[Rfam]
RNA: Bacterial antisense RNA HPnc0260
Organism: Alkalibaculum sporogenes
RNA sequence: UUUGAUAAAUUAUACUAAAAAGCCCUUCUAAUUUUAAUAGGUUUCAAUUAAUUUAUUAGAAGGGCUAAAAUAUUCAAUAAUAUUAUCAAUGGUGAUUCCGACUGGACUUGAACCAGCGACCUCCACCG
Numbered sequence: 001u002u003u004g005a006u007a008a009a010u011u012a013u014a015c016u017a018a019a020a021a022g023c024c025c026u027u028c029u030a031a032u033u034u035u036a037a038u039a040g041g042u043u044u045c046a047a048u049u050a051a052u053u054u055a056u057u058a059g060a061a062g063g064g065c066u067a068a069a070a071u072a073u074u075c076a077a078u079a080a081u082a083u084u085a086u087c088a089a090u091g092g093u094g095a096u097u098c099c100g101a102c103u104g105g106a107c108u109u110g111a112a113c114c115a116g117c118g119a120c121c122u123c124c125a126c127c128g
Stems, first nucleotide, its partner, number of pairs: 015040003021034002052060003090125003094121001099118002102116004